This 158-nucleotide sequence belongs to the Rfam family "DUF2800 RNA".
RNA sequence: UCACCCCAUAGGGCAUCCCCUGAUCAAGGAUGAUUCCAGACCUAUCGGGUGAACAACUGAAUAACUGCAGCCAGCCUACUGGAAUAGCUGGUCGCCAAUUCUGAAGCGGGAGUAAUCCCAUUCGGACGGUCGACUAUGCCUAUUUUGGCUGGUGCACG
Numbered sequence: 001u002c003a004c005c006c007c008a009u010a011g012g013g014c015a016u017c018c019c020c021u022g023a024u025c026a027a028g029g030a031u032g033a034u035u036c037c038a039g040a041c042c043u044a045u046c047g048g049g050u051g052a053a054c055a056a057c058u059g060a061a062u063a064a065c066u067g068c069a070g071c072c073a074g075c076c077u078a079c080u081g082g083a084a085u086a087g088c089u090g091g092u093c094g095c096c097a098a099u100u101c102u103g104a105a106g107c108g109g110g111a112g113u114a115a116u117c118c119c120a121u122u123c124g125g126a127c128g129g130u131c132g133a134c135u136a137u138g139c140c141u142a143u144u145u146u147g148g149c150u151g152g153u154g155c156a157c158g
Base pairs, nucleotide, nucleotide: 001052002051003050004049005048008045009044010043011042012041014032015031016030017029018028034084035083036082037081038080039079070153071152072151073150074149075148092133093132094131096129106121108119109118110117
Dot-bracket structure: (((((..(((((.(((((.........))))).[[[[[[.)))))..))))).................((((((...]]]]]].......(((.(.........(.(((......))).).......).)))..............)))))).....